[Rfam]
A member of the RNA family "che1 RNA" from Streptomyces sp. ISL-11, 93 nucleotides long. The family's consensus secondary structure is taken from published work. Lineage of the source: Bacteria > Bacillati > Actinomycetes > Streptomycetaceae > Streptomyces.
Nucleotides: 093
Stems, first nucleotide, its partner, number of pairs: 001042008014034005020028001046065008
Number, partner (000 for none) and nucleotide at each position: 001042g002041g003040g004039a005038c006037a007036g008035g009000g010000g011000g012000g013000u014034c015033u016032c017031c018030g019000g020028c021000g022000g023000u024000c025000g026000a027000c028020g029000a030018c031017g032016g033015g034014g035008c036007c037006u038005g039004u040003c041002c042001c043000a044000g045000c046065g047064g048063u049062u050061g051060c052059g053058c054000g055000a056000a057000g058053g059052c060051g061050u062049g063048g064047c065046c066000a067000g068000u069000g070000g071000u072000u073000g074000u075000c076000g077000c078000u079000c080000g081000g082000g083000g084000g085000u086000g087000a088000u089000c090000g091000c092000c093000g